[Rfam]
RNA sequence: AUAGCAGUGAUGUUAUGGAUGAAGGAAGCGGUGUAGCAAAAUCCUUGUGGCUACGAACAGAAACUGAAUUAGGCCUAGCUGUUGGGUAAGGCUGCACAUCAAGCCAAAGCCCUAAAGGGUAGACGUAUAUAUCAGUAAGGUAAAUUCAGAGCUAGUGAGGAUUCAAAUGUGAUGUGU
Numbered sequence: 001a002u003a004g005c006a007g008u009g010a011u012g013u014u015a016u017g018g019a020u021g022a023a024g025g026a027a028g029c030g031g032u033g034u035a036g037c038a039a040a041a042u043c044c045u046u047g048u049g050g051c052u053a054c055g056a057a058c059a060g061a062a063a064c065u066g067a068a069u070u071a072g073g074c075c076u077a078g079c080u081g082u083u084g085g086g087u088a089a090g091g092c093u094g095c096a097c098a099u100c101a102a103g104c105c106a107a108a109g110c111c112c113u114a115a116a117g118g119g120u121a122g123a124c125g126u127a128u129a130u131a132u133c134a135g136u137a138a139g140g141u142a143a144a145u146u147c148a149g150a151g152c153u154a155g156u157g158a159g160g161a162u163u164c165a166a167a168u169g170u171g172a173u174g175u176g177u
Stems, first nucleotide, its partner, number of pairs: 001016006028177003036170002042161006048154005064149005073141003078136004083131001084112004090105004

Rfam assigns this 177-nucleotide sequence from Intestinibaculum porci to the family "Group II catalytic intron D1-D4-3". The match comes from Rfam's covariance-model search (103 bits). Group II introns are found in rRNA, tRNA and mRNA of organelles in fungi, plants and protists, and also in mRNA in bacteria. NCBI's taxonomy places the organism under Bacteria, Bacillati, Bacillota, Erysipelotrichia, Intestinibaculum.